This 70-nucleotide RNA from Takifugu flavidus belongs to the Rfam family "mir-129 microRNA precursor family". NCBI's taxonomy places the organism under Eukaryota, Bilateria, Gnathostomata, Ctenosquamata, Takifugu. On this family, see Lagos-Quintana et al., RNA 2003: "New microRNAs from mouse and human".

[Rfam]
RNA sequence: UCAGGUCUUUUUGCGGUCUGGGCUUGCUGUAUAUGACCACCCAGGAAGCCCUUACCCCAAAAAGCAUCUG
Numbered sequence: 001u002c003a004g005g006u007c008u009u010u011u012u013g014c015g016g017u018c019u020g021g022g023c024u025u026g027c028u029g030u031a032u033a034u035g036a037c038c039a040c041c042c043a044g045g046a047a048g049c050c051c052u053u054a055c056c057c058c059a060a061a062a063a064g065c066a067u068c069u070g
Stems, first nucleotide, its partner, number of pairs: 007064007015056003020051004025046001027044002